Overview:
Rfam assigns this 191-nucleotide RNA sequence from Aerosakkonema funiforme to the family "HNH endonuclease-associated RNA and ORF (HEARO) RNA". The family's consensus secondary structure is taken from published work. It scores 131 bits against the family's covariance model. A reference for the family is Weinberg et al. (2009), "Exceptional structured noncoding RNAs revealed by bacterial metagenome analysis", Nature. The organism belongs to Aerosakkonema funiforme, within Bacteria.
RNA sequence: AACUAUAGCGGGAGCUUGCAAAAGCUCUAGUUGACCAGACUCAGUUCUACGGAACUACGUUACUUGGAUUAUGAAACCUACGAAUGCGUGCCAGUUUGUAGCUCUUUCGUACAGCUUUAAACAGGUGUAGCGAGUUAAGCCAGUGAGUUGUACCUAAAAAGUUCAAGUAACCUUGUCGAGGCAAACUUUAC
Numbered sequence: 001a002a003c004u005a006u007a008g009c010g011g012g013a014g015c016u017u018g019c020a021a022a023a024g025c026u027c028u029a030g031u032u033g034a035c036c037a038g039a040c041u042c043a044g045u046u047c048u049a050c051g052g053a054a055c056u057a058c059g060u061u062a063c064u065u066g067g068a069u070u071a072u073g074a075a076a077c078c079u080a081c082g083a084a085u086g087c088g089u090g091c092c093a094g095u096u097u098g099u100a101g102c103u104c105u106u107u108c109g110u111a112c113a114g115c116u117u118u119a120a121a122c123a124g125g126u127g128u129a130g131c132g133a134g135u136u137a138a139g140c141c142a143g144u145g146a147g148u149u150g151u152a153c154c155u156a157a158a159a160a161g162u163u164c165a166a167g168u169a170a171c172c173u174u175g176u177c178g179a180g181g182c183a184a185a186c187u188u189u190a191c
Stems, first nucleotide, its partner, number of pairs: 003008001015024003038177003043056005059171011074107002078101008086187001089184001090182003109153009121144002124141003128137003